[Rfam]
RNA sequence: AUAUUUAAAUGGCAAGUAUAUAGAAAUAUAUAUACGCAAAGUUGCAUAACUAAGGAUUACUCUAUGUUGGAUGGACUACAAUA
Numbered sequence: 001a002u003a004u005u006u007a008a009a010u011g012g013c014a015a016g017u018a019u020a021u022a023g024a025a026a027u028a029u030a031u032a033u034a035c036g037c038a039a040a041g042u043u044g045c046a047u048a049a050c051u052a053a054g055g056a057u058u059a060c061u062c063u064a065u066g067u068u069g070g071a072u073g074g075a076c077u078a079c080a081a082u083a
Base pairs, nucleotide, nucleotide: 012037013036017032018031019030020029021028022027040077041076042075043074045073046072047071048068049067050066055062056061

Shown here is an 83-nucleotide RNA sequence from Candidatus Izimoplasma sp. HR2, a member of the family "c-di-GMP-I riboswitch aptamer". Taxonomically the source falls in Candidatus Izemoplasma (Bacteria, Bacillati, Mollicutes, Candidatus Izemoplasmatales).